[Rfam]
RNA sequence: GGAGGCGUGGCAGAGUGGUUUAAUGCACCGGUCUUGAAAACCGGCAGUCGCUCCGGCGACUCAUAGGUUCAAAUCCUAUCGCCUCCG
Numbered sequence: 001g002g003a004g005g006c007g008u009g010g011c012a013g014a015g016u017g018g019u020u021u022a023a024u025g026c027a028c029c030g031g032u033c034u035u036g037a038a039a040a041c042c043g044g045c046a047g048u049c050g051c052u053c054c055g056g057c058g059a060c061u062c063a064u065a066g067g068u069u070c071a072a073a074u075c076c077u078a079u080c081g082c083c084u085c086c087g
Base pairs, nucleotide, nucleotide: 001086002085003084004083005082006081007080010026011025012024028044029043030042031041032040063079064078065077066076067075